[Rfam]
RNA sequence: AUUCUAGUGAAUGAUGUUGAACUUUUUUCCCCGUCAUAUCGAUCAUGGUGACUAAAGAAAUUUAAGCCAAAUUAUUCUGAUGCUAGAGC
Numbered sequence: 001a002u003u004c005u006a007g008u009g010a011a012u013g014a015u016g017u018u019g020a021a022c023u024u025u026u027u028u029c030c031c032c033g034u035c036a037u038a039u040c041g042a043u044c045a046u047g048g049u050g051a052c053u054a055a056a057g058a059a060a061u062u063u064a065a066g067c068c069a070a071a072u073u074a075u076u077c078u079g080a081u082g083c084u085a086g087a088g089c
Stems, first nucleotide, its partner, number of pairs: 002088008